[Rfam]
Nucleotides: 054
Stems, first nucleotide, its partner, number of pairs: 003054003007049004015043004021036006
Number, partner (000 for none) and nucleotide at each position: 001000g002000c003054g004053g005052u006000u007049c008048c009047g010046g011000u012000u013000c014000a015043c016042g017041c018040c019000c020000a021036g022035g023034c024033g025032c026031g027000g028000u029000a030000g031026c032025g033024u034023g035022c036021c037000c038000a039000u040018g041017g042016c043015g044000a045000c046010c047009c048008g049007g050000c051000g052005a053004c054003c